This 129-nucleotide RNA sequence from Hemibagrus wyckioides belongs to the Rfam family "Small nucleolar RNA SNORA63".
E3 belongs to the H/ACA class of snoRNAs and is involved in the processing of eukaryotic pre-rRNA and has regions of complementarity to 18S rRNA. E3 is encoded in introns in the gene for protein synthesis initiation factor 4AII.
It is annotated as an H/ACA-box small nucleolar RNA.
Gene Ontology terms of the family: RNA processing and nucleolus.
A search with the family's covariance model found it, with a score of 100 bits.
NCBI's taxonomy places the organism under Eukaryota, Eumetazoa, Actinopterygii, Bagridae, Hemibagrus.

RNA sequence: UUGCAGGAUCAGUUACGAAUCAGCUGUUGCAGUGCUGAUUGGUCGUUCCCCCUGCACAAAUCAAAUUGUUUCUUACUAUCCCUGUCUGUUUGCAUCCCACAGCUUGCAGGGACGCUUAGUCUCAAACAU
Numbered sequence: 001u002u003g004c005a006g007g008a009u010c011a012g013u014u015a016c017g018a019a020u021c022a023g024c025u026g027u028u029g030c031a032g033u034g035c036u037g038a039u040u041g042g043u044c045g046u047u048c049c050c051c052c053u054g055c056a057c058a059a060a061u062c063a064a065a066u067u068g069u070u071u072c073u074u075a076c077u078a079u080c081c082c083u084g085u086c087u088g089u090u091u092g093c094a095u096c097c098c099a100c101a102g103c104u105u106g107c108a109g110g111g112a113c114g115c116u117u118a119g120u121c122u123c124a125a126a127c128a129u
Stems, first nucleotide, its partner, number of pairs: 003055005015043002018040007081110004088103002